A member of the RNA family "Selenocysteine transfer RNA" from Candidatus Thiodictyon syntrophicum, 93 nucleotides long. The literature on the family includes a 2000 paper in FEBS Lett by Mizutani and Goto, "Eukaryotic selenocysteine tRNA has the 9/4 secondary structure". The base pairs follow the family's consensus structure, which is taken from published work. The organism belongs to Thiodictyon, within Bacteria.
RNA sequence: UGUGGUUUGUUGUAGACUGUUGAAUUCGUCGGACUUCAAAUCCGGUUGGGGCCGUCAGGCGGUCCCGGGUGGGUUCGACUCCCACGCCCUUCC
Number, nucleotide and partner (000 for none) at each position: 001u000002g092003u000004g090005g089006u000007u000008u086009g085010u000011u000012g027013u000014a025015g000016a000017c022018u000019g000020u000021u000022g017023a000024a000025u014026u000027c012028g046029u045030c044031g043032g042033a041034c000035u000036u000037c000038a000039a000040a000041u033042c032043c031044g030045g029046u028047u000048g066049g065050g064051g063052c062053c000054g000055u000056c000057a000058g000059g000060c000061g000062g052063u051064c050065c049066c048067g000068g000069g000070u084071g083072g082073g081074u000075u000076c000077g000078a000079c000080u000081c073082c072083c071084a070085c009086g008087c000088c000089c005090u004091u000092c002093c000